[Rfam]
A member of the RNA family "FMN riboswitch aptamer (RFN element)" from Ruminococcaceae bacterium CPB6, 138 nucleotides long. The organism belongs to Oscillospiraceae, within Bacteria.

RNA sequence: AUAAUUCUUCGGGGCGGGGUGUGAUUCCCCACCGGCGGUGAUGCAGCAGAUGCUGUUAGCCCGCGAGCGGUCGUCAAACCGCAAGAUUCUGGUGAGAUUCCGGAGCCGACGGUAUAGUCCGGAUGGUAGAAGAUAUGG
Numbered sequence: 001a002u003a004a005u006u007c008u009u010c011g012g013g014g015c016g017g018g019g020u021g022u023g024a025u026u027c028c029c030c031a032c033c034g035g036c037g038g039u040g041a042u043g044c045a046g047c048a049g050a051u052g053c054u055g056u057u058a059g060c061c062c063g064c065g066a067g068c069g070g071u072c073g074u075c076a077a078a079c080c081g082c083a084a085g086a087u088u089c090u091g092g093u094g095a096g097a098u099u100c101c102g103g104a105g106c107c108g109a110c111g112g113u114a115u116a117g118u119c120c121g122g123a124u125g126g127u128a129g130a131a132g133a134u135a136u137g138g
Stems, first nucleotide, its partner, number of pairs: 003136001006133005017029003031118002033108002035064004059106002067082003088104005110121003
Dot-bracket structure: ..(..(((((......(((.......))).[[((((((....................[[))))..(((..........))).....(((((.......)))))]])).(((....]]))).......)))))..)..